The record is a 365-nucleotide sequence from Paenibacillus xylanivorans, which matches "transfer-messenger RNA" in Rfam.

RNA sequence: GGGGGCGUUUAUGGAUUCGACGGGGAUAGUUCGAGCAUGGGUAGCGGGUAGUGGGGACGCGUCCACUUCAUCAACGCUAAAGCCUAUUAAACGGCAAACAACAAACAAACUACGCUUUCGCAGCCUAAGAAACUGUGUGCGUGCUUCUAACCUGCAUCGCCCAUGUGACAGGAUUAGGGGCUAACAAGUAGUGGGAUACGCUGUCACAUCUCCGCCUGGGGUGUGCUGAAGAAGACAAUCAGGCUGACCCAACGUAUAGCCGGUUACGGGGCGAUACUCGGGUGACAUCAAAACUGUGACUACACCCGUAGAAGCUUAUGUGUCGUUAUCUUCGGACAGGGGUUCGACUCCCCUCGCCUCCAUUA
Numbered sequence: 001g002g003g004g005g006c007g008u009u010u011a012u013g014g015a016u017u018c019g020a021c022g023g024g025g026a027u028a029g030u031u032c033g034a035g036c037a038u039g040g041g042u043a044g045c046g047g048g049u050a051g052u053g054g055g056g057a058c059g060c061g062u063c064c065a066c067u068u069c070a071u072c073a074a075c076g077c078u079a080a081a082g083c084c085u086a087u088u089a090a091a092c093g094g095c096a097a098a099c100a101a102c103a104a105a106c107a108a109a110c111u112a113c114g115c116u117u118u119c120g121c122a123g124c125c126u127a128a129g130a131a132a133c134u135g136u137g138u139g140c141g142u143g144c145u146u147c148u149a150a151c152c153u154g155c156a157u158c159g160c161c162c163a164u165g166u167g168a169c170a171g172g173a174u175u176a177g178g179g180g181c182u183a184a185c186a187a188g189u190a191g192u193g194g195g196a197u198a199c200g201c202u203g204u205c206a207c208a209u210c211u212c213c214g215c216c217u218g219g220g221g222u223g224u225g226c227u228g229a230a231g232a233a234g235a236c237a238a239u240c241a242g243g244c245u246g247a248c249c250c251a252a253c254g255u256a257u258a259g260c261c262g263g264u265u266a267c268g269g270g271g272c273g274a275u276a277c278u279c280g281g282g283u284g285a286c287a288u289c290a291a292a293a294c295u296g297u298g299a300c301u302a303c304a305c306c307c308g309u310a311g312a313a314g315c316u317u318a319u320g321u322g323u324c325g326u327u328a329u330c331u332u333c334g335g336a337c338a339g340g341g342g343u344u345c346g347a348c349u350c351c352c353c354u355c356g357c358c359u360c361c362a363u364u365a
Base pairs, nucleotide, nucleotide: 001361002360003359004358005357006356007355021334022333023332024331025330026329027328028327029326030325033323035321036320037319038318039317040316041315042314045308046307047306048305049304050067051066052065053064054063059077060076061075062074117139119137120136121135122134123133143181144180145179146178147177148176151172152171153170155167156166157165160195161194162193163192164191201231202230204228207225208224209223214244215243216242217241218240247283248282249281250280252278259272260271261270263300264299265298266297338354339353340352341351342350
The organism belongs to Paenibacillus, within Bacteria. Rfam links the family to the GO term RNA catabolic process. For this family Rfam cites "Phylogenetic analysis of tmRNA secondary structure" (Williams and Bartel, RNA, 1996).